[Rfam]
RNA sequence: CUACCGGCAUCGAGAGGUGCUGGGAUGGGUGUGCAGAAGUCAGCCGAGGGCAUAGUAGGGGUAUCGACCACCCUGAAGGCC
Numbered sequence: 001c002u003a004c005c006g007g008c009a010u011c012g013a014g015a016g017g018u019g020c021u022g023g024g025a026u027g028g029g030u031g032u033g034c035a036g037a038a039g040u041c042a043g044c045c046g047a048g049g050g051c052a053u054a055g056u057a058g059g060g061g062u063a064u065c066g067a068c069c070a071c072c073c074u075g076a077a078g079g080c081c
Stems, first nucleotide, its partner, number of pairs: 001027001004023008040047002049081003058074005
RNA: Group II catalytic intron D1-D4-1